[Rfam]
RNA sequence: CGACCCGGUCGUGACUGGCGAGAGGUGGAACUGACCACCGGGGAGCGGCCGCAGCAGUCCCGCCGUCGCACCGUUCGCCUGGGUGCUCGGG
Dot-bracket structure: .....(((((((..(([[[[[...((((......))))..))..)))))))................(((((..]]]]]..))))).....
Numbered sequence: 001c002g003a004c005c006c007g008g009u010c011g012u013g014a015c016u017g018g019c020g021a022g023a024g025g026u027g028g029a030a031c032u033g034a035c036c037a038c039c040g041g042g043g044a045g046c047g048g049c050c051g052c053a054g055c056a057g058u059c060c061c062g063c064c065g066u067c068g069c070a071c072c073g074u075u076c077g078c079c080u081g082g083g084u085g086c087u088c089g090g091g
Stems, first nucleotide, its partner, number of pairs: 006051007015042002017079005025038004068086005
Shown here is a 91-nucleotide sequence from Cellulomonas hominis, a member of the family "ZMP/ZTP riboswitch aptamer (pfl RNA motif)".